[Rfam]
RNA sequence: CUUUAAAAAUCUGGAUCAAGCUGAAAAUUGAAACGACACGCUGUGUCUGUUCUCCGUAAACAAGAACAGAAGGCGGUGUGUUCGAGUCUCUCAAAUUUUUGCAAUCAGAAGACAUCUUCGG
Numbered sequence: 001c002u003u004u005a006a007a008a009a010u011c012u013g014g015a016u017c018a019a020g021c022u023g024a025a026a027a028u029u030g031a032a033a034c035g036a037c038a039c040g041c042u043g044u045g046u047c048u049g050u051u052c053u054c055c056g057u058a059a060a061c062a063a064g065a066a067c068a069g070a071a072g073g074c075g076g077u078g079u080g081u082u083c084g085a086g087u088c089u090c091u092c093a094a095a096u097u098u099u100u101g102c103a104a105u106c107a108g109a110a111g112a113c114a115u116c117u118u119c120g121g
Base pairs, nucleotide, nucleotide: 020102021101023100024099025098026097027096028095029094034084035083036082038081039080040079041078108119109118111116
Shown here is a 121-nucleotide RNA sequence from Klebsiella sp. RIT-PI-d, a member of the family "Salmonella enterica Typhi npcRNA 44". It is annotated as a non-coding RNA gene. Rfam 15.1 lists 474 matches to the family in 137 species. Pairs were carried over by alignment from the consensus structure, which was predicted with CMfinder. For this family Rfam cites "Experimental identification and characterization of 97 novel npcRNA candidates in Salmonella enterica serovar Typhi" (Chinni et al., Nucleic Acids Res, 2010).